[Rfam]
RNA sequence: UCCGCGGUUUUGCGGAAUCUUAAGGAAGCGGCCGGCAAACUCAGAUCUGAGGGACACGCACUUCAUAUAAGGUUAGAUACAUUGGAUGAGUUUGCAUACAAAACUAAGUCCCUUUUGCCGAAGGUGGUAGAGAGUAAAUGAAAUAGAUAGAUAGAUGGAAAGGUUGUACU
Numbered sequence: 001u002c003c004g005c006g007g008u009u010u011u012g013c014g015g016a017a018u019c020u021u022a023a024g025g026a027a028g029c030g031g032c033c034g035g036c037a038a039a040c041u042c043a044g045a046u047c048u049g050a051g052g053g054a055c056a057c058g059c060a061c062u063u064c065a066u067a068u069a070a071g072g073u074u075a076g077a078u079a080c081a082u083u084g085g086a087u088g089a090g091u092u093u094g095c096a097u098a099c100a101a102a103a104c105u106a107a108g109u110c111c112c113u114u115u116u117g118c119c120g121a122a123g124g125u126g127g128u129a130g131a132g133a134g135u136a137a138a139u140g141a142a143a144u145a146g147a148u149a150g151a152u153a154g155a156u157g158g159a160a161a162g163g164u165u166g167u168a169c170u
Stems, first nucleotide, its partner, number of pairs: 001016006028170001031167002036162001040157001041155002044152001045148005062142005072135003078129003084111004090104004